TPP riboswitch aptamer (THI element): a 101-nucleotide RNA sequence from Aureimonas sp. Leaf324. Its family is annotated with thiamine pyrophosphate binding in the Gene Ontology. The family's consensus secondary structure is taken from published work. The source organism's lineage runs through Bacteria, Pseudomonadati, Pseudomonadota, Hyphomicrobiales and Aureimonas.

RNA sequence: GCCGCUCACACGGGGUGCCCAUUUCGGGCUGAGAGGCAUCGCGCCAACCCGCUGAACCUGAUCCGGCUCGUACCGGCGGAGGGAUGGGGAGCGUCCGCGAC
Numbered sequence: 001g002c003c004g005c006u007c008a009c010a011c012g013g014g015g016u017g018c019c020c021a022u023u024u025c026g027g028g029c030u031g032a033g034a035g036g037c038a039u040c041g042c043g044c045c046a047a048c049c050c051g052c053u054g055a056a057c058c059u060g061a062u063c064c065g066g067c068u069c070g071u072a073c074c075g076g077c078g079g080a081g082g083g084a085u086g087g088g089g090a091g092c093g094u095c096c097g098c099g100a101c
Stems, first nucleotide, its partner, number of pairs: 006089002009086002011051004017029004036044002057082003063076004